[Rfam]
RNA sequence: UGGAAAUGAUGAAAUAGAGAUAACUGGAUGUCAUUUUGAAUGGAGUGUGUGUGAUAAAUGGAAUUUAAACCAAGUCAGACUUGGGGUGGGGGGUGUGGGGAGUGUGUGUGUGUGCAACAUGUGUGGAAAAGGCUUGAAAUGGGGGCCCUGAUUUUCAGUGCUGACCUCCGGAGUGCAUCUGAGGCGUGUUGUGAAGUUUUGGGGUGCCACAUUCCAACACUGCCAGUGAUUAAAGCCCAAGCAAGCCCACCAGAACAAGCCUGAGCAUCCUAAAUCUCUGACAGGUUCACUCAUGAGUGAUCCUGUAAUCUGAUCUGA
Numbered sequence: 001u002g003g004a005a006a007u008g009a010u011g012a013a014a015u016a017g018a019g020a021u022a023a024c025u026g027g028a029u030g031u032c033a034u035u036u037u038g039a040a041u042g043g044a045g046u047g048u049g050u051g052u053g054a055u056a057a058a059u060g061g062a063a064u065u066u067a068a069a070c071c072a073a074g075u076c077a078g079a080c081u082u083g084g085g086g087u088g089g090g091g092g093g094u095g096u097g098g099g100g101a102g103u104g105u106g107u108g109u110g111u112g113u114g115c116a117a118c119a120u121g122u123g124u125g126g127a128a129a130a131g132g133c134u135u136g137a138a139a140u141g142g143g144g145g146c147c148c149u150g151a152u153u154u155u156c157a158g159u160g161c162u163g164a165c166c167u168c169c170g171g172a173g174u175g176c177a178u179c180u181g182a183g184g185c186g187u188g189u190u191g192u193g194a195a196g197u198u199u200u201g202g203g204g205u206g207c208c209a210c211a212u213u214c215c216a217a218c219a220c221u222g223c224c225a226g227u228g229a230u231u232a233a234a235g236c237c238c239a240a241g242c243a244a245g246c247c248c249a250c251c252a253g254a255a256c257a258a259g260c261c262u263g264a265g266c267a268u269c270c271u272a273a274a275u276c277u278c279u280g281a282c283a284g285g286u287u288c289a290c291u292c293a294u295g296a297g298u299g300a301u302c303c304u305g306u307a308a309u310c311u312g313a314u315c316u317g318a
Base pairs, nucleotide, nucleotide: 001317002316003315004314187219188218189217190216191215193213194212196208198206199204
Small Cajal body-specific RNA 7: a 318-nucleotide RNA sequence from Oreotrochilus melanogaster.
The family has 18 seed sequences and 570 matches in Rfam 15.1.
It is annotated as a small Cajal body RNA.
Lineage of the source: Eukaryota > Amniota > Aves > Neoaves > Oreotrochilus.
A search with the family's covariance model found it, with a score of 148 bits.
A reference for the family is Darzacq et al. (2002), "Cajal body-specific small nuclear RNAs: a novel class of 2'-O-methylation and pseudouridylation guide RNAs", EMBO J.